RNA sequence: AGUUCUGAAGCACCGGCAACACGAAAUUUGCAGGUGGAGAACGAGGAGACAUGAGGCACAAAGUGCCCAAGACGAAAGCGCUGUUGGAUUGAUAUCCAACAGCGCUUUUUA
Numbered sequence: 001a002g003u004u005c006u007g008a009a010g011c012a013c014c015g016g017c018a019a020c021a022c023g024a025a026a027u028u029u030g031c032a033g034g035u036g037g038a039g040a041a042c043g044a045g046g047a048g049a050c051a052u053g054a055g056g057c058a059c060a061a062a063g064u065g066c067c068c069a070a071g072a073c074g075a076a077a078g079c080g081c082u083g084u085u086g087g088a089u090u091g092a093u094a095u096c097c098a099a100c101a102g103c104g105c106u107u108u109u110u111a
Base pairs, nucleotide, nucleotide: 002042003041004040005039011036012035013034014033016031017030018029019028046073052069053068055067056066057065058064059063075108076107077106078105079104080103081102082101083100084099085098086097087096088095
A member of the RNA family "Burkholderia sRNA 1" from Paraburkholderia sp. BL10I2N1, 111 nucleotides long. Identified by RNA-seq, RACE and Northern blot. Strongly expressed in biofilm. A reference for the family is Sass et al. (2017), "Identification of small RNAs abundant in Burkholderia cenocepacia biofilms reveal putative regulators with a potential role in carbon and iron metabolism", Sci Rep. It scores 86 bits against the family's covariance model. Rfam links the family to the GO term bacterial biofilm matrix.